Annotation:
mir-29 microRNA precursor family: a 68-nucleotide sequence from Electrophorus electricus. NCBI's taxonomy places the organism under Eukaryota, Deuterostomia, Vertebrata, Otomorpha, Electrophorus. Rfam describes the family as follows. This family represents the microRNA (miRNA) precursors mir-29. Its family is annotated with RISC complex and gene silencing by miRNA in the Gene Ontology.
RNA sequence: CGAUGACUGAUUUCCUCUGGUGCUUAGAGUCCCGCUUGGCUUCUAGCACCAUUUGAAAUCGGUUAUAA
Numbered sequence: 001c002g003a004u005g006a007c008u009g010a011u012u013u014c015c016u017c018u019g020g021u022g023c024u025u026a027g028a029g030u031c032c033c034g035c036u037u038g039g040c041u042u043c044u045a046g047c048a049c050c051a052u053u054u055g056a057a058a059u060c061g062g063u064u065a066u067a068a
Base pairs, nucleotide, nucleotide: 003066004065005063007062008061009060010059011058012057013056014055018051019050020049021048022047025045026044027043028042